Rfam assigns this 56-nucleotide sequence from Microvirga guangxiensis to the family "terC RNA".
Lineage of the source: Bacteria > Pseudomonadati > Pseudomonadota > Alphaproteobacteria > Microvirga.
The base pairs follow the family's consensus structure, which is taken from published work.
RNA sequence: GUACCAGGCCGGGCCCCUCUGGCAGCUCCUGCGAGCUGCGAUGUCGGACUGGACAU
Numbered sequence: 001g002u003a004c005c006a007g008g009c010c011g012g013g014c015c016c017c018u019c020u021g022g023c024a025g026c027u028c029c030u031g032c033g034a035g036c037u038g039c040g041a042u043g044u045c046g047g048a049c050u051g052g053a054c055a056u
Stems, first nucleotide, its partner, number of pairs: 006050002009047004022039007